This 85-nucleotide sequence from Medicago truncatula belongs to the Rfam family "MIR2617 microRNA precursor family".
The family has 3 seed sequences and 1,174 matches in Rfam 15.1.
Rfam links the family to the GO terms RISC complex and miRNA-mediated post-transcriptional gene silencing.
The source organism's lineage runs through Eukaryota, Embryophyta, Fabales, Hologalegina and Medicago.
RNA sequence: AUGACGUGUAACAUGCCCGUUGUGUAAUUACUUUGAUGCAUAUUUUAUUAAUUAAUUGAUUUUUGGGAAACGGGGUGUUACACUA
Numbered sequence: 001a002u003g004a005c006g007u008g009u010a011a012c013a014u015g016c017c018c019g020u021u022g023u024g025u026a027a028u029u030a031c032u033u034u035g036a037u038g039c040a041u042a043u044u045u046u047a048u049u050a051a052u053u054a055a056u057u058g059a060u061u062u063u064u065g066g067g068a069a070a071c072g073g074g075g076u077g078u079u080a081c082a083c084u085a
Base pairs, nucleotide, nucleotide: 006083007082008081009080010079011078012077013076014075016074017073018072019071020070021069